This 535-nucleotide sequence from Zizania palustris belongs to the Rfam family "Group I catalytic intron". The source organism's lineage runs through Eukaryota, Spermatophyta, commelinids, Poales and Zizania. Group I catalytic introns are large self-splicing ribozymes. They catalyse their own excision from mRNA, tRNA and rRNA precursors in a wide range of organisms. The core secondary structure consists of 9 paired regions (P1-P9). These fold to essentially two domains - the P4-P6 domain (formed from the stacking of P5, P4, P6 and P6a helices) and the P3-P9 domain (formed from the P8, P3, P7 and P9 helices). The family's consensus secondary structure is taken from published work.

RNA sequence: CUACGGACUUGAUUGUAUUGAGCCUUGGUAUGGAAACCUGCUAAGUGGUAACUUCCAAAUUCAGAGAAACCCUGGAAUUAAAAAGGGGCAAUCCUGAGCCAAAUCCGUGUUUUGAGAAAACACGCGGUUCUCGAACUAGAAUCCAAAGGAAAAGGAUAGGUGCAGAGACUCAAUGGAAGCUUGUUCUAACGAAUCGAGUUAAUUACGUUGUGUUGGUAGUGAAACUCCCUCUAAAUUAGAAAAAGAAGGGCUUUAUAAAGCUGUGUAAAUCUAAUACACACAUAUAGAUACUGACAUAGCAAACGAUUAAUCACAGAACUCAUAUCAUAAUAUAGGUUCUUUAAUUCUUUUUUAGAAUGAAAAUAGGAAUGAUUAUGAAAUAGAAAAUUAUGAAUUUUUUUAGAAUUAUUGUGAAUCCAUUCCAAUCGAAUAUUGAGUAAUCAAAUCCUUCAAUUCAUAGUUUUCCAAAUCUUUUAAAAAGUGGAUUAAUCGGACGAGGAUAAAGAGAGAGUCCCAUUCUACAUGUCAAUGUCAA
Number, nucleotide and partner (000 for none) at each position: 001c000002u000003a000004c000005g024006g000007a000008c022009u021010u020011g019012a018013u017014u000015g000016u000017a013018u012019u011020g010021a009022g008023c000024c005025u000026u000027g000028g000029u000030a000031u000032g000033g000034a000035a000036a000037c000038c000039u000040g000041c000042u000043a000044a000045g000046u000047g000048g000049u000050a182051a181052c179053u178054u177055c000056c175057a174058a000059a000060u000061u097062c096063a095064g094065a000066g092067a000068a000069a000070c088071c087072c086073u085074g000075g000076a000077a000078u000079u000080a000081a000082a000083a000084a000085g073086g072087g071088g070089c000090a000091a000092u066093c000094c064095u063096g062097a061098g161099c160100c000101a000102a000103a000104u155105c154106c000107g000108u000109g000110u149111u148112u147113u146114g000115a000116g000117a000118a000119a000120a000121c000122a000123c000124g000125c000126g000127g000128u000129u000130c000131u000132c000133g000134a000135a000136c000137u000138a000139g000140a000141a000142u000143c000144c000145a000146a113147a112148g111149g110150a000151a000152a000153a000154g105155g104156a000157u000158a000159g000160g099161u098162g000163c000164a000165g514166a000167g513168a512169c511170u510171c509172a000173a000174u057175g056176g000177a054178a053179g052180c000181u051182u050183g000184u500185u499186c498187u497188a000189a000190c000191g000192a000193a000194u000195c000196g000197a000198g000199u000200u000201a000202a000203u000204u000205a000206c000207g000208u000209u000210g000211u000212g000213u000214u000215g000216g000217u000218a000219g000220u000221g000222a000223a000224a000225c000226u000227c000228c000229c000230u000231c000232u000233a000234a000235a000236u000237u000238a000239g000240a000241a000242a000243a000244a000245g000246a000247a000248g000249g000250g000251c000252u000253u000254u000255a000256u000257a000258a000259a000260g000261c000262u000263g000264u000265g000266u000267a000268a000269a000270u000271c000272u000273a000274a000275u000276a000277c000278a000279c000280a000281c000282a000283u000284a000285u000286a000287g000288a000289u000290a000291c000292u000293g000294a000295c000296a000297u000298a000299g000300c000301a000302a000303a000304c000305g000306a000307u000308u000309a000310a000311u000312c000313a000314c000315a000316g000317a000318a000319c000320u000321c000322a000323u000324a000325u000326c000327a000328u000329a000330a000331u000332a000333u000334a000335g000336g000337u000338u000339c000340u000341u000342u000343a000344a000345u000346u000347c000348u000349u000350u000351u000352u000353u000354a000355g000356a000357a000358u000359g000360a000361a000362a000363a000364u000365a000366g000367g000368a000369a000370u000371g000372a000373u000374u000375a000376u000377g000378a000379a000380a000381u000382a000383g000384a000385a000386a000387a000388u000389u000390a000391u000392g000393a000394a000395u000396u000397u000398u000399u000400u000401u000402a000403g000404a000405a000406u000407u000408a000409u000410u000411g000412u000413g000414a000415a000416u000417c000418c000419a000420u000421u000422c000423c000424a000425a000426u000427c000428g000429a000430a000431u000432a000433u000434u000435g000436a000437g000438u000439a000440a000441u000442c000443a000444a000445a000446u000447c000448c000449u000450u000451c000452a000453a000454u000455u000456c000457a000458u000459a000460g000461u000462u000463u000464u000465c000466c000467a000468a000469a000470u000471c000472u000473u000474u000475u000476a000477a000478a000479a000480a000481g000482u000483g000484g000485a000486u000487u000488a000489a000490u000491c000492g000493g000494a000495c000496g000497a187498g186499g185500a184501u000502a000503a000504a000505g000506a000507g000508a000509g171510a170511g169512u168513c167514c165515c000516a000517u000518u000519c000520u000521a532522c531523a530524u529525g000526u000527c000528a000529a524530u523531g522532u521533c000534a000535a000